This 100-nucleotide RNA from Tateyamaria sp. ANG-S1 belongs to the Rfam family "Pyrrolysine insertion sequence mttB". A reference for the family is Theil Have et al. (2013), "Effects of using coding potential, sequence conservation and mRNA structure conservation for predicting pyrroly-sine containing genes", BMC Bioinformatics. The match comes from Rfam's covariance-model search (44 bits). Lineage of the source: Bacteria > Alphaproteobacteria > Rhodobacterales > Roseobacteraceae > Tateyamaria. It is annotated as a cis-regulatory element.
RNA sequence: GCCACGGACAGCAAGUUGCCCGACAUGCAGGCAGGCUGGGAACAGAUGUGUUCCAACGUCAUGGCAGGCCUGUCGGGGCUGAACAUGGUCUAUGAGGCCG
Numbered sequence: 001g002c003c004a005c006g007g008a009c010a011g012c013a014a015g016u017u018g019c020c021c022g023a024c025a026u027g028c029a030g031g032c033a034g035g036c037u038g039g040g041a042a043c044a045g046a047u048g049u050g051u052u053c054c055a056a057c058g059u060c061a062u063g064g065c066a067g068g069c070c071u072g073u074c075g076g077g078g079c080u081g082a083a084c085a086u087g088g089u090c091u092a093u094g095a096g097g098c099c100g
Base pairs, nucleotide, nucleotide: 001012033062035060077098079096080095